A member of the RNA family "RAGATH-18 RNA", 68 nucleotides long.

RNA sequence: UCCUUGGAGAGUUAACCAACUAAAGUAGAAUAAGAAAUUAUUCCAAAUAGAACUCGAUGAAUAGGAAA
Numbered sequence: 001u002c003c004u005u006g007g008a009g010a011g012u013u014a015a016c017c018a019a020c021u022a023a024a025g026u027a028g029a030a031u032a033a034g035a036a037a038u039u040a041u042u043c044c045a046a047a048u049a050g051a052a053c054u055c056g057a058u059g060a061a062u063a064g065g066a067a068a
Stems, first nucleotide, its partner, number of pairs: 001066004009055005020050003028043003033039002